[Rfam]
RNA sequence: GUACAAAUGAUGUGAAUAAACCGGUAUGACUAACCAUGAUACUGUAAACGCUUUCUGAUGUA
Numbered sequence: 001g002u003a004c005a006a007a008u009g010a011u012g013u014g015a016a017u018a019a020a021c022c023g024g025u026a027u028g029a030c031u032a033a034c035c036a037u038g039a040u041a042c043u044g045u046a047a048a049c050g051c052u053u054u055c056u057g058a059u060g061u062a
Stems, first nucleotide, its partner, number of pairs: 002062004012054001015052001017050001022044006